RNA sequence: CCCUCCAUGCCUCUUCAUAAUGCACAAACAGGAGGGU
Numbered sequence: 001c002c003c004u005c006c007a008u009g010c011c012u013c014u015u016c017a018u019a020a021u022g023c024a025c026a027a028a029c030a031g032g033a034g035g036g037u
Stems, first nucleotide, its partner, number of pairs: 001036006008024003

This 37-nucleotide sequence belongs to the Rfam family "abiF RNA". Rfam's curators put it in the seed alignment. The family has 126 seed sequences and 282 matches in Rfam 15.1. Rfam classes the family as a small RNA. Rfam describes the family as follows. Actinobacteria, Bacteroidetes, Clostridia, Proteobacteria, one Clostridia phage. The family's consensus secondary structure is taken from published work.